[Rfam]
RNA sequence: CUGGCAUCAGUGCUGGGGAAUGGCCCCCGGGGCGGGCCUCCACUGUGGCCCCUCCUGGGGCCUGCACUCUCGCUCCGGGCCCA
Number, nucleotide and partner (000 for none) at each position: 001c000002u000003g081004g080005c079006a000007u078008c077009a000010g075011u000012g073013c072014u000015g070016g069017g068018g067019a000020a000021u064022g063023g062024c000025c060026c059027c058028c057029g056030g055031g054032g000033c000034g051035g050036g049037c048038c047039u000040c000041c000042a000043c000044u000045g000046u000047g038048g037049c036050c035051c034052c000053u000054c031055c030056u029057g028058g027059g026060g025061c000062c023063u022064g021065c000066a000067c018068u017069c016070u015071c000072g013073c012074u000075c010076c000077g008078g007079g005080c004081c003082c000083a000

mir-1343 microRNA precursor family: an 83-nucleotide RNA from Propithecus coquereli. Gene Ontology terms of the family: RISC complex and miRNA-mediated post-transcriptional gene silencing. It scores 79 bits against the family's covariance model. Pairs were carried over by alignment from the consensus structure, which was predicted with RNAalifold.